[Rfam]
Shown here is an 88-nucleotide sequence from Sporomusa termitida, a member of the family "c-di-GMP-I riboswitch aptamer". The family is grouped with related families in Rfam's "c-di-GMP_I riboswitch clan". Rfam 15.1 lists 5,092 matches to the family in 1,772 species. It scores 70 bits against the family's covariance model.

RNA sequence: AUACUAAGUUGGCAAACUUAUCGAAAGAUAGGGACGCAAAGCCGUGGGUCUACAAGCUGUUUGCGCUCAAGACUGCCAGGUUGCAAUC
Numbered sequence: 001a002u003a004c005u006a007a008g009u010u011g012g013c014a015a016a017c018u019u020a021u022c023g024a025a026a027g028a029u030a031g032g033g034a035c036g037c038a039a040a041g042c043c044g045u046g047g048g049u050c051u052a053c054a055a056g057c058u059g060u061u062u063g064c065g066c067u068c069a070a071g072a073c074u075g076c077c078a079g080g081u082u083g084c085a086a087u088c
Stems, first nucleotide, its partner, number of pairs: 012037002017032006040082004045078003048073003055067003
Dot-bracket structure: ...........((...((((((....))))))...))..((((.((((((....(((.......)))...)))..)))))))......